[Rfam]
RNA sequence: CACCGCGCGGCCUCUAAUUCGCUUGGUGCAGGUCGGGAACCGCUGCUACUUUGGCGUUUAAUGAAUGAGGCGGUGGUUGACGGUGGCGAAUUGGUUCCCGCCUUGCAUCAACUGAAUCGGAGGCUGCGGUGGUU
Numbered sequence: 001c002a003c004c005g006c007g008c009g010g011c012c013u014c015u016a017a018u019u020c021g022c023u024u025g026g027u028g029c030a031g032g033u034c035g036g037g038a039a040c041c042g043c044u045g046c047u048a049c050u051u052u053g054g055c056g057u058u059u060a061a062u063g064a065a066u067g068a069g070g071c072g073g074u075g076g077u078u079g080a081c082g083g084u085g086g087c088g089a090a091u092u093g094g095u096u097c098c099c100g101c102c103u104u105g106c107a108u109c110a111a112c113u114g115a116a117u118c119g120g121a122g123g124c125u126g127c128g129g130u131g132g133u134u
Base pairs, nucleotide, nucleotide: 013121014120017117018116019115020114023111024110025109026108027107028106029105030104031103032102034100035099036098037097038096040094041093
RNA: MIR168 microRNA precursor family
Organism: Lupinus angustifolius